[Rfam]
RNA sequence: AAUGAAUUCCUGGAGAGGGAACUCUGGGAAGAUAUAAUAAAUUAAGAUUAAAUGGUAUGAAUCAACGAGCAUGUUGCAAU
Numbered sequence: 001a002a003u004g005a006a007u008u009c010c011u012g013g014a015g016a017g018g019g020a021a022c023u024c025u026g027g028g029a030a031g032a033u034a035u036a037a038u039a040a041a042u043u044a045a046g047a048u049u050a051a052a053u054g055g056u057a058u059g060a061a062u063c064a065a066c067g068a069g070c071a072u073g074u075u076g077c078a079a080u
Stems, first nucleotide, its partner, number of pairs: 007030009063076004
This 80-nucleotide RNA sequence from Panicum hallii belongs to the Rfam family "Plastid-rpl20 3UTR RNA". By type it is a cis-regulatory element. About the family: Plastid rpl20 is a non-coding RNA (ncRNA) recognised in plastids. Taxonomically the source falls in Panicum hallii (Eukaryota, Euphyllophyta, Liliopsida, Panicodae). The match comes from Rfam's covariance-model search (94 bits).